About this RNA: A member of the RNA family "RNase MRP", 337 nucleotides long.
RNA sequence: AACCACCACGCAGACCCGCUUACGAACCAUCACACACGGAGAAAACGACUUUUUUCGGAAAGACCCGUUUUCUCACCAUUGGUUUGGGGAAAGUCCUCGGACACAGGGCAGAAAGUGCCACCUAUAACACGGUUUCCACCUCCCGGACGCGCGGUCCGUCGCGAAGAACCGGGGGCUUCCAAGCCCCUGAGCCUCUUGGCUGUCGCAUCCGGGGUGGCUCGUUGGUCAUAGCACAGUUAUGCGGGUGCGGUCGUCCCGCGAGGGCCGUGCGCGACCCCUAAGGGCAAGCCGCGGCCUGGGAGGGCCGUAACUCAACGGGGCUCACUCGUGUGGUGGU
Numbered sequence: 001a002a003c004c005a006c007c008a009c010g011c012a013g014a015c016c017c018g019c020u021u022a023c024g025a026a027c028c029a030u031c032a033c034a035c036a037c038g039g040a041g042a043a044a045a046c047g048a049c050u051u052u053u054u055u056c057g058g059a060a061a062g063a064c065c066c067g068u069u070u071u072c073u074c075a076c077c078a079u080u081g082g083u084u085u086g087g088g089g090a091a092a093g094u095c096c097u098c099g100g101a102c103a104c105a106g107g108g109c110a111g112a113a114a115g116u117g118c119c120a121c122c123u124a125u126a127a128c129a130c131g132g133u134u135u136c137c138a139c140c141u142c143c144c145g146g147a148c149g150c151g152c153g154g155u156c157c158g159u160c161g162c163g164a165a166g167a168a169c170c171g172g173g174g175g176c177u178u179c180c181a182a183g184c185c186c187c188u189g190a191g192c193c194u195c196u197u198g199g200c201u202g203u204c205g206c207a208u209c210c211g212g213g214g215u216g217g218c219u220c221g222u223u224g225g226u227c228a229u230a231g232c233a234c235a236g237u238u239a240u241g242c243g244g245g246u247g248c249g250g251u252c253g254u255c256c257c258g259c260g261a262g263g264g265c266c267g268u269g270c271g272c273g274a275c276c277c278c279u280a281a282g283g284g285c286a287a288g289c290c291g292c293g294g295c296c297u298g299g300g301a302g303g304g305c306c307g308u309a310a311c312u313c314a315a316c317g318g319g320g321c322u323c324a325c326u327c328g329u330g331u332g333g334u335g336g337u
Stems, first nucleotide, its partner, number of pairs: 002337010014246006023086006039074009092322002095320004107119004120134001122132002125129001136217003142213006151206004161192002248307005

Rfam 15.1 lists 3,510 matches to the family in 2,315 species. RNase MRP is an enzymatically active ribonucleoprotein with two distinct roles in eukaryotes. A search with the family's covariance model found it, with a score of 121 bits.